Shown here is an 86-nucleotide sequence from Solanum lycopersicum, a member of the family "MIR8024 microRNA precursor family".
The match comes from Rfam's covariance-model search (64 bits).

RNA sequence: UUGAAGAAUUUGAAGACUUCAACUUACAUACAUGAAGAAUUUAAUGACUUUAACUUGCAUACUUGGAGAUUCGGAAUACUUCAUCA
Numbered sequence: 001u002u003g004a005a006g007a008a009u010u011u012g013a014a015g016a017c018u019u020c021a022a023c024u025u026a027c028a029u030a031c032a033u034g035a036a037g038a039a040u041u042u043a044a045u046g047a048c049u050u051u052a053a054c055u056u057g058c059a060u061a062c063u064u065g066g067a068g069a070u071u072c073g074g075a076a077u078a079c080u081u082c083a084u085c086a
Stems, first nucleotide, its partner, number of pairs: 002083005009076003014071001017068005025059001027057002033052005